RNA: Purine riboswitch aptamer
RNA sequence: AUGUAAAUAAAUUAGUUCGUCCGUAUAAUCUUGAAAAUAUGGUUCAAGAGUUUCUACCAGAGUACCGUAAAUCUCUGACUAUGGGUGAAUCCGCAUUAUAU
Numbered sequence: 001a002u003g004u005a006a007a008u009a010a011a012u013u014a015g016u017u018c019g020u021c022c023g024u025a026u027a028a029u030c031u032u033g034a035a036a037a038u039a040u041g042g043u044u045c046a047a048g049a050g051u052u053u054c055u056a057c058c059a060g061a062g063u064a065c066c067g068u069a070a071a072u073c074u075c076u077g078a079c080u081a082u083g084g085g086u087g088a089a090u091c092c093g094c095a096u097u098a099u100a101u
Stems, first nucleotide, its partner, number of pairs: 018087008029049007058077005064072001